[Rfam]
RNA sequence: AAAAAACCUCGUUAGGUGAGGCUCCUGUACGGAGACAUGCUACUGCCCAGAAACGUCCAAAGACGCCAACGGGUUUGAACAGAAACCAUCGAAUUAAGGUGGUUUAUAACGUAGCUAGAAACCCACGUUUCUUAUGCCGUACAGUGCUAAAGCUCAAUGAAUUGGGGUAGACC
Numbered sequence: 001a002a003a004a005a006a007c008c009u010c011g012u013u014a015g016g017u018g019a020g021g022c023u024c025c026u027g028u029a030c031g032g033a034g035a036c037a038u039g040c041u042a043c044u045g046c047c048c049a050g051a052a053a054c055g056u057c058c059a060a061a062g063a064c065g066c067c068a069a070c071g072g073g074u075u076u077g078a079a080c081a082g083a084a085a086c087c088a089u090c091g092a093a094u095u096a097a098g099g100u101g102g103u104u105u106a107u108a109a110c111g112u113a114g115c116u117a118g119a120a121a122c123c124c125a126c127g128u129u130u131c132u133u134a135u136g137c138c139g140u141a142c143a144g145u146g147c148u149a150a151a152g153c154u155c156a157a158u159g160a161a162u163u164g165g166g167g168u169a170g171a172c173c
Stems, first nucleotide, its partner, number of pairs: 006168005011158002013097001015154003020148003025144008039115005045074004054065004083105003088100003117132003
The record is a 173-nucleotide RNA sequence from Acinetobacter rudis, which matches "M-box riboswitch aptamer (ykoK leader)" in Rfam. M-box riboswitch, also know as ykoK leader is described as a metaloregulatory RNA that sense divalent metals and function as a genetic control element of genes related to divalent metal transport in bacteria. It was first reported upstream of the B.subtilis ykoK gene and genes with related functions in other bacteria. The pairing is the family consensus, mapped onto this sequence.